Rfam assigns this 108-nucleotide RNA sequence from Flavobacterium rivulicola to the family "6S-Flavo RNA". Pairs were carried over by alignment from the consensus structure, which is taken from published work. It scores 93 bits against the family's covariance model. Taxonomically the source falls in Flavobacterium (Bacteria, Bacteroidota, Flavobacteriia, Flavobacteriales). Rfam classes the family as a small RNA.
[Rfam]
RNA sequence: ACUCAACACUAACAAAUUAGAAUGAGCCAGUCAUCGUUACUAAAGCAUGCCACUUUUACCGUGGAUCCUUGACCAACGAGUUAGCUCAAAACUUGUCUUUACGAGUUU
Dot-bracket structure: ......................(((((......(((((....(((....((((.......))))...)))....)))))....)))))....................